Background:
A member of the RNA family "Glycine riboswitch aptamer" from Peptoclostridium acidaminophilum, 70 nucleotides long. Pairs were carried over by alignment from the consensus structure. Lineage of the source: Bacteria > Bacillati > Bacillota > Peptostreptococcales > Peptoclostridium.
RNA sequence: AUGAAGGUGGCAGGAGAGACCCAUGAGGGGCGCCGAAGAAGUAAAGCUUUCAGGCUUAGGACUGUCAUCA
Numbered sequence: 001a002u003g004a005a006g007g008u009g010g011c012a013g014g015a016g017a018g019a020c021c022c023a024u025g026a027g028g029g030g031c032g033c034c035g036a037a038g039a040a041g042u043a044a045a046g047c048u049u050u051c052a053g054g055c056u057u058a059g060g061a062c063u064g065u066c067a068u069c070a
Base pairs, nucleotide, nucleotide: 006069007068008067009066010065011064012063013062020030021029022028032055033054034053035051036050039049040048041047